[Rfam]
RNA sequence: ACGGCGGGUUCCGAAAAGCCGACGAUAGAGUAGGAA
Numbered sequence: 001a002c003g004g005c006g007g008g009u010u011c012c013g014a015a016a017a018g019c020c021g022a023c024g025a026u027a028g029a030g031u032a033g034g035a036a
Base pairs, nucleotide, nucleotide: 002021003020004019005018010035011034012033